RNA sequence: AUAUGCAAUGCGCUGAAUGCUGGUAACAGCAACGGGAGAACCAUUAUUUGGGGUGUAAUUGCGGCUGGGCCGCAUGCGGGAACUUCCUUUCCCUAACCCGACAGCUAAUCUCGUAAGCGGAGGAAGGCUCAGUU
Numbered sequence: 001a002u003a004u005g006c007a008a009u010g011c012g013c014u015g016a017a018u019g020c021u022g023g024u025a026a027c028a029g030c031a032a033c034g035g036g037a038g039a040a041c042c043a044u045u046a047u048u049u050g051g052g053g054u055g056u057a058a059u060u061g062c063g064g065c066u067g068g069g070c071c072g073c074a075u076g077c078g079g080g081a082a083c084u085u086c087c088u089u090u091c092c093c094u095a096a097c098c099c100g101a102c103a104g105c106u107a108a109u110c111u112c113g114u115a116a117g118c119g120g121a122g123g124a125a126g127g128c129u130c131a132g133u134u
Base pairs, nucleotide, nucleotide: 011119012118013117014116018031019030020029032114033113034112035111036110037109042050043049051099052098053097060074061073062072078093079092080091081090
Rfam assigns this 134-nucleotide RNA from [Clostridium] symbiosum to the family "c-di-AMP riboswitch aptamer (ydaO/yuaA leader)".